Rfam assigns this 65-nucleotide RNA from Patiria miniata to the family "mir-33 microRNA precursor family". Gene Ontology terms of the family: gene silencing by miRNA and RISC complex. Pairs were carried over by alignment from the consensus structure, which was predicted with PFOLD.
RNA sequence: CCCUGGUGCAUUGUAGUUGCAUUGCAUUUGUUAUGAAUAUGCAGUGCAUCUGCAAAGCAACAGGG
Numbered sequence: 001c002c003c004u005g006g007u008g009c010a011u012u013g014u015a016g017u018u019g020c021a022u023u024g025c026a027u028u029u030g031u032u033a034u035g036a037a038u039a040u041g042c043a044g045u046g047c048a049u050c051u052g053c054a055a056a057g058c059a060a061c062a063g064g065g
Stems, first nucleotide, its partner, number of pairs: 001065004006061001007059003011055006019047001021045007